This 157-nucleotide RNA sequence from Sulfitobacter donghicola belongs to the Rfam family "FMN riboswitch aptamer (RFN element)".
RNA sequence: CUCUAUUCUCAGGGCGGGGCGAAAUUCCCCACCGGCGGUAUGGGGGCGCGCCCCCGAGCCCGCGAGCGCUGCCAACCUCCAUUCCAGAGGCGGCAGGUCAGCAGAUCUGGUGAGAUGCCAGAGCCGACGGUCAUAGUCCGGAUGGAAGAGAAUACAG
Numbered sequence: 001c002u003c004u005a006u007u008c009u010c011a012g013g014g015c016g017g018g019g020c021g022a023a024a025u026u027c028c029c030c031a032c033c034g035g036c037g038g039u040a041u042g043g044g045g046g047c048g049c050g051c052c053c054c055c056g057a058g059c060c061c062g063c064g065a066g067c068g069c070u071g072c073c074a075a076c077c078u079c080c081a082u083u084c085c086a087g088a089g090g091c092g093g094c095a096g097g098u099c100a101g102c103a104g105a106u107c108u109g110g111u112g113a114g115a116u117g118c119c120a121g122a123g124c125c126g127a128c129g130g131u132c133a134u135a136g137u138c139c140g141g142a143u144g145g146a147a148g149a150g151a152a153u154a155c156a157g
Stems, first nucleotide, its partner, number of pairs: 004154007017029003031137002033126002035063004058124002066102002106122005128140003
Notes
The family's consensus secondary structure is taken from published work. About the family: The RFN element is a highly conserved domain that is found frequently in the 5'-untranslated regions of prokaryotic mRNAs that encode for flavin mononucleotide (FMN) biosynthesis and transport proteins. This element is a metabolite-dependent riboswitch that directly binds FMN in the absence of proteins. In Bacillus subtilis, the riboswitch most likely controls gene expression by causing premature transcription termination within the 5' untranslated region of the ribDEAHT operon and precluding access to the ribosome-binding site of ypaA mRNA.The FMN riboswitch structure, reported in present an FMN-bound six-stem junction, adopts a butterfly-like scaffold, stapled together by opposingly directed but nearly identically folded peripheral domains. The match comes from Rfam's covariance-model search (108 bits). Taxonomically the source falls in Sulfitobacter donghicola (Bacteria, Pseudomonadota, Rhodobacterales, Roseobacteraceae).